[Rfam]
RNA sequence: GUCCGUUCAUUCCCAGUGGGAACGCAUGAAACCACAUCAUGGAACGGGGGUGUGGU
Numbered sequence: 001g002u003c004c005g006u007u008c009a010u011u012c013c014c015a016g017u018g019g020g021a022a023c024g025c026a027u028g029a030a031a032c033c034a035c036a037u038c039a040u041g042g043a044a045c046g047g048g049g050g051u052g053u054g055g056u
Base pairs, nucleotide, nucleotide: 004046005045006044007043008042010022011021012020013019014018031056032055033054034053035052036051037049038048

Shown here is a 56-nucleotide RNA, a member of the family "Glutamine-II riboswitch aptamer". Pairs were carried over by alignment from the consensus structure, which is taken from published work. The literature on the family includes a 2019 paper in Nucleic Acids Res by Huang et al., "Structure and ligand binding of the glutamine-II riboswitch". Rfam's curators put it in the seed alignment.